[Rfam]
RNA sequence: UGCCUGUGAUGAAUUGCCAUGCUAAUACCGACACUGCCAGUAAGGAGCAUGUGGUUUCUGUGCUGGCAGCGGCUGAGUGUAAUGACUUCUUGACGCACUGAGGCUG
Numbered sequence: 001u002g003c004c005u006g007u008g009a010u011g012a013a014u015u016g017c018c019a020u021g022c023u024a025a026u027a028c029c030g031a032c033a034c035u036g037c038c039a040g041u042a043a044g045g046a047g048c049a050u051g052u053g054g055u056u057u058c059u060g061u062g063c064u065g066g067c068a069g070c071g072g073c074u075g076a077g078u079g080u081a082a083u084g085a086c087u088u089c090u091u092g093a094c095g096c097a098c099u100g101a102g103g104c105u106g
Stems, first nucleotide, its partner, number of pairs: 002104003043059004
A member of the RNA family "Small nucleolar RNA U6-53/MBII-28" from Eleutherodactylus coqui, 106 nucleotides long. The source organism's lineage runs through Eukaryota, Metazoa, Chordata, Anura and Eleutherodactylus. The base pairs follow the family's consensus structure. A reference for the family is Huttenhofer et al. (2001), "RNomics: an experimental approach that identifies 201 candidates for novel, small, non-messenger RNAs in mouse", EMBO J. Rfam links the family to the GO terms nucleolus and RNA processing.